[Rfam]
RNA sequence: CGAAUGAGCAGGCCGGCUAAGGUCUCAGGCGUCCUGUUACAACGCCGGCACUAGCACUUCCUGUGCG
Numbered sequence: 001c002g003a004a005u006g007a008g009c010a011g012g013c014c015g016g017c018u019a020a021g022g023u024c025u026c027a028g029g030c031g032u033c034c035u036g037u038u039a040c041a042a043c044g045c046c047g048g049c050a051c052u053a054g055c056a057c058u059u060c061c062u063g064u065g066c067g
Stems, first nucleotide, its partner, number of pairs: 012049006028038003054066004